The family of this 125-nucleotide RNA sequence from Bucco capensis is "Small nucleolar RNA ACA64". A search with the family's covariance model found it, with a score of 57 bits. The source organism's lineage runs through Eukaryota, Metazoa, Teleostomi, Piciformes and Bucco. The family's RNA type in Rfam is H/ACA-box small nucleolar RNA. The family's consensus secondary structure was predicted with WAR. For this family Rfam cites "A computational screen for mammalian pseudouridylation guide H/ACA RNAs" (Schattner et al., RNA, 2006). The family has 30 seed sequences and 9,537 matches in Rfam 15.1.

[Rfam]
RNA sequence: ACAGUCUGAAAAUCACUUGGGGUCUUCUGUGGCCCCUGGUGCAAUAACCAUGCUGACAGCAGAGGGAGCAUUAAACUCACUGCCCACGGUAAUGUGUGGGGAGUGAAACCCCUGUUCCUAUAAUC
Number, nucleotide and partner (000 for none) at each position: 001a000002c000003a000004g000005u000006c000007u000008g048009a000010a045011a000012a000013u000014c041015a040016c039017u000018u000019g000020g000021g034022g033023u032024c031025u000026u000027c000028u000029g000030u000031g024032g023033c022034c021035c000036c000037u000038g000039g016040u015041g014042c000043a000044a000045u010046a000047a000048c008049c000050a000051u000052g000053c000054u000055g000056a000057c000058a000059g000060c000061a000062g000063a000064g000065g118066g000067a116068g115069c114070a113071u000072u000073a000074a000075a000076c000077u106078c105079a104080c103081u102082g000083c000084c000085c096086a095087c094088g000089g000090u000091a000092a000093u000094g087095u086096g085097u000098g000099g000100g000101g000102a081103g080104u079105g078106a077107a000108a000109c000110c000111c000112c000113u070114g069115u068116u067117c000118c065119u000120a000121u000122a000123a000124u000125c000